[Rfam]
RNA sequence: GAGGCGGUAUCUUGCAGGAACUGCACUCUGGAGUUAAUUAAGGCAAUAAUGGAAUACUACUUGAAACAAAAUGUUGGAUUCUGCUCUGAGCCUUAAGAGGACCGAGACAGAAGG
Number, nucleotide and partner (000 for none) at each position: 001g028002a027003g026004g024005c023006g022007g021008u020009a000010u019011c018012u000013u000014g000015c000016a000017g000018g011019a010020a008021c007022u006023g005024c004025a000026c003027u002028c001029u000030g000031g000032a000033g000034u000035u000036a000037a000038u000039u000040a000041a000042g000043g000044c000045a000046a000047u000048a000049a000050u000051g000052g000053a000054a000055u000056a000057c000058u000059a000060c000061u000062u000063g000064a000065a000066a000067c000068a000069a000070a000071a000072u000073g000074u000075u000076g000077g000078a000079u000080u000081c110082u109083g108084c106085u105086c104087u000088g102089a000090g000091c100092c099093u000094u000095a000096a000097g000098a000099g092100g091101a000102c088103c000104g086105a085106g084107a000108c083109a082110g081111a000112a000113g000114g000
RNA: pan motif